Rfam assigns this 114-nucleotide sequence from Betta splendens to the family "Potassium channel RNA editing signal". From the family's description: This family represents a group of sequences related to the human potassium channel Kv1.1 hairpin element which directs the efficient modification of an adenosine to inosine by an adenosine deaminase acting on RNA (ADAR). The ADAR modification causes an isoleucine/valine recoding event which lies in the ion-conducting pore of the potassium channel. It is thought that this editing event targets the process of fast inactivation and allows a more rapid recovery from inactivation at negative potentials. The family's consensus secondary structure is taken from published work. For this family Rfam cites "Control of human potassium channel inactivation by editing of a small mRNA hairpin" (Bhalla et al., Nat Struct Mol Biol, 2004). The family has 85 seed sequences and 14,095 matches in Rfam 15.1. The match comes from Rfam's covariance-model search (79 bits).
[Rfam]
Nucleotides: 114
Stems, first nucleotide, its partner, number of pairs: 001114002004111001007108005013102002016099001020095001037077002040074001049063001051061001
Number, partner (000 for none) and nucleotide at each position: 001114g002113u003000a004111g005000g006000c007108u008107a009106c010105g011104g012000a013102g014101a015000c016099a017000u018000u019000u020095a021000c022000c023000c024000a025000a026000a027000a028000a029000c030000u031000c032000u033000c034000c035000u036000g037077g038076g039000a040074a041000a042000g043000a044000u045000u046000g047000u048000g049063g050000g051061g052000g053000g054000g055000u056000u057000g058000u059000g060000u061051u062000g063049c064000a065000u066000a067000g068000c069000u070000g071000g072000a073000g074040u075000g076038c077037u078000g079000g080000u081000g082000a083000u084000u085000g086000c087000u088000c089000u090000g091000c092000c093000u094000a095020u096000u097000c098000c099016u100000a101014u102013u103000a104011u105010u106009g107008u108007a109000a110000a111004u112000a113002a114001c